[Rfam]
RNA sequence: GGCUGGUCUGACUGUAGUGGUGUUUACAACGAAUUGAUCACAACCAGUUAUGGAUGUCUUUGUUUCUUACUCACUCCCACUAUUUCACUUGACUAGCCUUAA
Numbered sequence: 001g002g003c004u005g006g007u008c009u010g011a012c013u014g015u016a017g018u019g020g021u022g023u024u025u026a027c028a029a030c031g032a033a034u035u036g037a038u039c040a041c042a043a044c045c046a047g048u049u050a051u052g053g054a055u056g057u058c059u060u061u062g063u064u065u066c067u068u069a070c071u072c073a074c075u076c077c078c079a080c081u082a083u084u085u086c087a088c089u090u091g092a093c094u095a096g097c098c099u100u101a102a
Base pairs, nucleotide, nucleotide: 001098002097003096004095005094006093007092008091010090011089014086016081017080018079019078020077022076028064029063030062032060033059
Y RNA: a 102-nucleotide RNA sequence from Cebus imitator. The source organism's lineage runs through Eukaryota, Chordata, Gnathostomata, Amniota and Cebus. It scores 72 bits against the family's covariance model. Y RNAs are components of the Ro ribonucleoprotein particle (Ro RNP), in association with Ro60 and La proteins. Rfam classes the family as a non-coding RNA gene.